Description
Rfam assigns this 75-nucleotide RNA from Alligator sinensis to the family "Mammalian CPEB3 ribozyme". The mammalian CPEB3 ribozyme is a self cleaving RNA located in the second intron of the CPEB3 gene which belongs to a family of genes regulating messenger RNA polyadenylation. This ribozyme is highly conserved and found only in mammals. The CPEB3 ribozyme is structurally and biochemically related to the human hepatitis delta virus (HDV) ribozyme and the HDV ribozyme is proposed to have arisen from the human transcriptome. It scores 46 bits against the family's covariance model.
RNA sequence: UUACAAGUUUAAGGCCAUAGCAGAAGCGCUCAUGGCACCGCCGUGUCAGAUUCCAAAGAAUCUGCAAAUUCUGCA
Numbered sequence: 001u002u003a004c005a006a007g008u009u010u011a012a013g014g015c016c017a018u019a020g021c022a023g024a025a026g027c028g029c030u031c032a033u034g035g036c037a038c039c040g041c042c043g044u045g046u047c048a049g050a051u052u053c054c055a056a057a058g059a060a061u062c063u064g065c066a067a068a069u070u071c072u073g074c075a
Base pairs, nucleotide, nucleotide: 013042014041015040020074021073022072023071024070025069026038028036047064048063049062050061051060052059053058